[Rfam]
RNA sequence: AUACAUUUUUUUUUAAAGAAUAUGUUCUUAUCAGUUUAAUAUCUGAUACGUCCCCCAUAGGGGACUACAUAUUAAAUGGAUUUUUUGAACAGGGAGUCGGAAAUGGGGCUUGCUCCGUCCGCUCCACGCAUCAACCCGGUAUUGCAGUACCUCCGGGAACGGUGCAACACUU
Numbered sequence: 001a002u003a004c005a006u007u008u009u010u011u012u013u014u015a016a017a018g019a020a021u022a023u024g025u026u027c028u029u030a031u032c033a034g035u036u037u038a039a040u041a042u043c044u045g046a047u048a049c050g051u052c053c054c055c056c057a058u059a060g061g062g063g064a065c066u067a068c069a070u071a072u073u074a075a076a077u078g079g080a081u082u083u084u085u086u087g088a089a090c091a092g093g094g095a096g097u098c099g100g101a102a103a104u105g106g107g108g109c110u111u112g113c114u115c116c117g118u119c120c121g122c123u124c125c126a127c128g129c130a131u132c133a134a135c136c137c138g139g140u141a142u143u144g145c146a147g148u149a150c151c152u153c154c155g156g157g158a159a160c161g162g163u164g165c166a167a168c169a170c171u172u
Stems, first nucleotide, its partner, number of pairs: 003012001005010001029048006050065006093125005099119002105116004128165005135157005
A member of the RNA family "U2 spliceosomal RNA" from Salmo salar, 172 nucleotides long. On this family, see Zwieb, Nucleic Acids Res 1997: "The uRNA database".